[Rfam]
A member of the RNA family "Actinobacteria sRNA Ms_IGR-7", 85 nucleotides long.
The base pairs follow the family's consensus structure.
A search with the family's covariance model found it, with a score of 47 bits.
The family's RNA type in Rfam is small RNA.
RNA sequence: GCGAGGUGCUGUGGAACUGACAUGAUACUGACUAGGCUAGUCAGUAUCAUGUCAGUUCCACAGCACCUCGCUUCCCCGGCUCUAG
Numbered sequence: 001g002c003g004a005g006g007u008g009c010u011g012u013g014g015a016a017c018u019g020a021c022a023u024g025a026u027a028c029u030g031a032c033u034a035g036g037c038u039a040g041u042c043a044g045u046a047u048c049a050u051g052u053c054a055g056u057u058c059c060a061c062a063g064c065a066c067c068u069c070g071c072u073u074c075c076c077c078g079g080c081u082c083u084a085g
Stems, first nucleotide, its partner, number of pairs: 002070014017055005023049004028044001030042003